[Rfam]
Shown here is a 99-nucleotide sequence from Paenibacillus oceani, a member of the family "c-di-GMP-I riboswitch aptamer". It scores 65 bits against the family's covariance model. The family's consensus secondary structure is taken from published work.
RNA sequence: CCCGACAAACGGCAAACCCGGCUAAAGCCGGCGACGCAAAGCUAGAGGGGCUAAAGCAGCAGAUCGGAAUCGACCUUGCCAAGCCAGCCAGCUGCCGAA
Dot-bracket structure: ...........((....(((((....)))))....))..((((...(((((....((((................))))...)))..))))))......